Shown here is a 53-nucleotide sequence from Cynara cardunculus, a member of the family "Plastid-psbA-3 3UTR RNA". The organism belongs to Cynara cardunculus subsp. cardunculus, within Eukaryota. On this family, see Richter et al., Plant Commun 2023: "Retrograde signaling in plants: A critical review focusing on the GUN pathway and beyond". Rfam classes the family as a cis-regulatory element. Plastid psbA-3 is a non-coding RNA (ncRNA) present in plastids. It was identified in inverted repeat sequences in the 3 prime untranslate region (3UTR) of photosystem II quinone-binding protein (psbA). It scores 61 bits against the family's covariance model. The family is grouped with related families in Rfam's "Plastid-psbA 3UTR RNA clan". Pairs were carried over by alignment from the consensus structure, which was predicted with LocARNA.
[Rfam]
RNA sequence: GAGCAAUAGCUUCCCUCUUGUUUUAUCAAGAGGGCGUUAUUGCUCCUUUUUUU
Numbered sequence: 001g002a003g004c005a006a007u008a009g010c011u012u013c014c015c016u017c018u019u020g021u022u023u024u025a026u027c028a029a030g031a032g033g034g035c036g037u038u039a040u041u042g043c044u045c046c047u048u049u050u051u052u053u
Stems, first nucleotide, its partner, number of pairs: 001045010015032006